[Rfam]
RNA sequence: AGGACAGUAUCUUAAUAGAACUGUACCUGCCACUGCUAGUCAACAUUUAAAAAAUCUGCUUUGAUCUACACAAGACAGAGACGGAAGA
Numbered sequence: 001a002g003g004a005c006a007g008u009a010u011c012u013u014a015a016u017a018g019a020a021c022u023g024u025a026c027c028u029g030c031c032a033c034u035g036c037u038a039g040u041c042a043a044c045a046u047u048u049a050a051a052a053a054a055u056c057u058g059c060u061u062u063g064a065u066c067u068a069c070a071c072a073a074g075a076c077a078g079a080g081a082c083g084g085a086a087g088a
Base pairs, nucleotide, nucleotide: 001028002027003026004024005023006022007021008020010019011018056084057083058082059080060079061078062077063076065075066074067073
RNA: pan motif
Organism: Solibacillus silvestris